[Rfam]
RNA sequence: UCUGUUGCUGUAAACAUCCCCGACUGGAAGCUGUGCAGGAACAACUAAGCUUUCAGUAGGAUGUUUGCUGCCACGGA
Numbered sequence: 001u002c003u004g005u006u007g008c009u010g011u012a013a014a015c016a017u018c019c020c021c022g023a024c025u026g027g028a029a030g031c032u033g034u035g036c037a038g039g040a041a042c043a044a045c046u047a048a049g050c051u052u053u054c055a056g057u058a059g060g061a062u063g064u065u066u067g068c069u070g071c072c073a074c075g076g077a
Stems, first nucleotide, its partner, number of pairs: 002076004008070001010068010023057010
Background
The family of this 77-nucleotide RNA sequence from Chanos chanos is "mir-30 microRNA precursor family". Rfam describes the family as follows. This family consists of the mammalian microRNA (miRNA) precursor mir-30a. Animal miRNAs are transcribed as ~70nt precursors and subsequently processed by the Dicer enzyme to give a ~22nt product. On this family, see Lagos-Quintana et al., Science 2001: "Identification of novel genes coding for small expressed RNAs".